[Rfam]
A member of the RNA family "Glycine riboswitch aptamer" from Nonomuraea zeae, 97 nucleotides long.
Taxonomically the source falls in Nonomuraea (Bacteria, Bacillati, Actinomycetota, Streptosporangiales).
The literature on the family includes a 2004 paper in Science by Mandal et al., "A glycine-dependent riboswitch that uses cooperative binding to control gene expression".
It scores 48 bits against the family's covariance model.

RNA sequence: GUGACCUCUGGAAAGCAGGCCUGCGGGGCCUCGCCGAAGGUGAAAGUCCGGCAAAGCUCGGGCGAAGCUCUCAGGCAUCCGUGACAGAGGGGGAGGA
Numbered sequence: 001g002u003g004a005c006c007u008c009u010g011g012a013a014a015g016c017a018g019g020c021c022u023g024c025g026g027g028g029c030c031u032c033g034c035c036g037a038a039g040g041u042g043a044a045a046g047u048c049c050g051g052c053a054a055a056g057c058u059c060g061g062g063c064g065a066a067g068c069u070c071u072c073a074g075g076c077a078u079c080c081g082u083g084a085c086a087g088a089g090g091g092g093g094a095g096g097a
Base pairs, nucleotide, nucleotide: 005090006089007088008087009086010085017031018030019029020028033076034075035074036072037071040070042068046063047062048061049060050059